[Rfam]
The record is a 101-nucleotide RNA sequence from Schinkia azotoformans, which matches "Purine riboswitch aptamer" in Rfam.

RNA sequence: UAUCUAUAUAAUUAACAACCUUGUAUAAGUUCAAGAAUACGGCUUGAACGUUUCUACCAGCUACCAUAAAUAGCUUGUCUACAAGGAUUAGAAAGUGUCAU
Numbered sequence: 001u002a003u004c005u006a007u008a009u010a011a012u013u014a015a016c017a018a019c020c021u022u023g024u025a026u027a028a029g030u031u032c033a034a035g036a037a038u039a040c041g042g043c044u045u046g047a048a049c050g051u052u053u054c055u056a057c058c059a060g061c062u063a064c065c066a067u068a069a070a071u072a073g074c075u076u077g078u079c080u081a082c083a084a085g086g087a088u089u090a091g092a093a094a095g096u097g098u099c100a101u
Stems, first nucleotide, its partner, number of pairs: 019086007029049007058077002060074004

Notes
Riboswitches are metabolite binding domains within certain messenger RNAs that serve as precision sensors for their corresponding targets. Allosteric rearrangement of mRNA structure is mediated by ligand binding, and this results in modulation of gene expression. A class of riboswitches that selectively recognises guanine and becomes saturated at concentrations as low as 5 nM. In Bacillus subtilis, this mRNA motif is located on at least five separate transcriptional units that together encode 17 genes that are mostly involved in purine transport and purine nucleotide biosynthesis. It has also been shown that some members of this family are specific for adenine instead. The organism belongs to Schinkia azotoformans, within Bacteria. It scores 78 bits against the family's covariance model.